[Rfam]
Nucleotides: 078
Stems, first nucleotide, its partner, number of pairs: 001077004031040003
Number, partner (000 for none) and nucleotide at each position: 001077g002076c003075c004074a005000c006000a007000u008000g009000a010000u011000g012000a013000u014000a015000u016000u017000g018000a019000g020000u021000a022000g023000c024000c025000a026000c027000a028000g029000u030000a031040g032039c033038u034000c035000u036000a037000g038033a039032g040031c041000c042000a043000u044000g045000a046000u047000g048000a049000c050000c051000u052000c053000c054000u055000a056000u057000c058000u059000a060000u061000c062000a063000c064000c065000c066000u067000u068000g069000u070000c071000u072000g073000a074004u075003g076002g077001c078000u